[Rfam]
RNA: mir-965 microRNA precursor family
RNA sequence: AAUUUGAGGGGUCAAACUGUACGUUCUAUGUGACAAUAUUCGAAAUUCAUAAGCGUAUAGCUUUUCCCCUUAAAAC
Number, nucleotide and partner (000 for none) at each position: 001a000002a000003u074004u073005u072006g071007a070008g000009g068010g067011g066012u000013c000014a063015a000016a000017c060018u059019g058020u057021a056022c000023g000024u053025u052026c000027u051028a050029u049030g048031u000032g000033a000034c000035a000036a000037u000038a000039u000040u000041c000042g000043a000044a000045a000046u000047u000048c030049a029050u028051a027052a025053g024054c000055g000056u021057a020058u019059a018060g017061c000062u000063u014064u000065u000066c011067c010068c009069c000070u007071u006072a005073a004074a003075a000076c000